[Rfam]
RNA: Bacterial large subunit ribosomal RNA, nucleotides 3053 to 3303
RNA sequence: GGAAAUUUGAGAGGAUCUGCCCCUAGUACGAGAGGACCGGGGUGGACGAACCUCUGGUGUAUCGAUUGUGGCCACCUGCUGCAUUGUCGAGUAGCUAAGUUCGGACUAGAUAAGUGCUGAAAGCAUAUUAAGCACGAAACUAACCUCAAGAUUAGAUUUCCCUAUGAGGACACUGAAAGAUUAUCAGUUUGAUAGGUGCAAGGUGGAAGUGCAGUAAUGCAUGGAGCUGAAGCAUACUAAUAGUCCCAUUG
Numbered sequence: 001g002g003a004a005a006u007u008u009g010a011g012a013g014g015a016u017c018u019g020c021c022c023c024u025a026g027u028a029c030g031a032g033a034g035g036a037c038c039g040g041g042g043u044g045g046a047c048g049a050a051c052c053u054c055u056g057g058u059g060u061a062u063c064g065a066u067u068g069u070g071g072c073c074a075c076c077u078g079c080u081g082c083a084u085u086g087u088c089g090a091g092u093a094g095c096u097a098a099g100u101u102c103g104g105a106c107u108a109g110a111u112a113a114g115u116g117c118u119g120a121a122a123g124c125a126u127a128u129u130a131a132g133c134a135c136g137a138a139a140c141u142a143a144c145c146u147c148a149a150g151a152u153u154a155g156a157u158u159u160c161c162c163u164a165u166g167a168g169g170a171c172a173c174u175g176a177a178a179g180a181u182u183a184u185c186a187g188u189u190u191g192a193u194a195g196g197u198g199c200a201a202g203g204u205g206g207a208a209g210u211g212c213a214g215u216a217a218u219g220c221a222u223g224g225a226g227c228u229g230a231a232g233c234a235u236a237c238u239a240a241u242a243g244u245c246c247c248a249u250u251g
Base pairs, nucleotide, nucleotide: 001161002160003159004158005157006156007155008154011147012146013145014144017045018044019043020042021041022040023039047103048102049101050100051099055097056096057095062090063089064088065087066086067083068082069081070080071079072078107142108141109140114135115134116133117132118131165248168246169245170244171243172188173187174186175185176184193239194238195237196235197234198233199232202228203227209222210221211220212219213218